[Rfam]
RNA sequence: AUACUUACCUGACAGGCGUGUCACCCUGAUCACGAAGGGGGUGCACGUAUUGCAGCUGCUUGCAUAGCACUCCGCUUGCGGCUGCAGUAGCAGUGGCUCUCAUGGGUUACUGCACGGUUUCAUUUUUGCAUGGGUGAGGAGCGUGCACUGCACCCC
Numbered sequence: 001a002u003a004c005u006u007a008c009c010u011g012a013c014a015g016g017c018g019u020g021u022c023a024c025c026c027u028g029a030u031c032a033c034g035a036a037g038g039g040g041g042u043g044c045a046c047g048u049a050u051u052g053c054a055g056c057u058g059c060u061u062g063c064a065u066a067g068c069a070c071u072c073c074g075c076u077u078g079c080g081g082c083u084g085c086a087g088u089a090g091c092a093g094u095g096g097c098u099c100u101c102a103u104g105g106g107u108u109a110c111u112g113c114a115c116g117g118u119u120u121c122a123u124u125u126u127u128g129c130a131u132g133g134g135u136g137a138g139g140a141g142c143g144u145g146c147a148c149u150g151c152a153c154c155c156c
Base pairs, nucleotide, nucleotide: 012118013117015115016048017047018046019045020044021043023042024041025040026039027038049088050087051086052085056081057080058079059078062075063074090113091112092111095107097105098104133154134153135152136151138149139148141146
RNA: U1 spliceosomal RNA